[Rfam]
Rfam assigns this 86-nucleotide RNA sequence from Crocodylus porosus to the family "Small nucleolar RNA SNORD103/SNORD85". The family has 41 seed sequences and 1,349 matches in Rfam 15.1. The match comes from Rfam's covariance-model search (62 bits). Rfam links the family to the GO terms RNA processing and nucleolus. It is annotated as a C/D-box small nucleolar RNA.
RNA sequence: UGUGGCAGUGAUGACACACUUGCCCUCACUGAGAAUACUGUUCGGUUAUGAAAAUCUUGCUCUGUACUGAGAGGAGCUGAGCUAGA
Numbered sequence: 001u002g003u004g005g006c007a008g009u010g011a012u013g014a015c016a017c018a019c020u021u022g023c024c025c026u027c028a029c030u031g032a033g034a035a036u037a038c039u040g041u042u043c044g045g046u047u048a049u050g051a052a053a054a055u056c057u058u059g060c061u062c063u064g065u066a067c068u069g070a071g072a073g074g075a076g077c078u079g080a081g082c083u084a085g086a
Base pairs, nucleotide, nucleotide: 001086003084004083005082006081